The record is an 80-nucleotide RNA sequence from Clupea harengus, which matches "mir-27 microRNA precursor family" in Rfam.
RNA sequence: UAAAGGCACAGAGCUUAGCUAAUUGAUGAGCAUUGAUCCCUAAAACAUACUGUUCACAGUGGCUAAGUUCAGUGCCUGAA
Numbered sequence: 001u002a003a004a005g006g007c008a009c010a011g012a013g014c015u016u017a018g019c020u021a022a023u024u025g026a027u028g029a030g031c032a033u034u035g036a037u038c039c040c041u042a043a044a045a046c047a048u049a050c051u052g053u054u055c056a057c058a059g060u061g062g063c064u065a066a067g068u069u070c071a072g073u074g075c076c077u078g079a080a
Stems, first nucleotide, its partner, number of pairs: 011070010027056006

Taxonomically the source falls in Clupea (Eukaryota, Teleostei, Osteoglossocephalai, Otomorpha).